[Rfam]
RNA sequence: GCCGGGCGCACCCGUCCCGUGCGUCCCCGGACGUUGCUCUCCGCCCCGGGAACGUCGAGAUUGGAGUACCGGAG
Dot-bracket structure: ..(.((.((.((.(((.((..(((.(((((..((........)).))))).))).)).))).)).)).)).)..
RNA: mir-1247 microRNA precursor family
Organism: Chrysochloris asiatica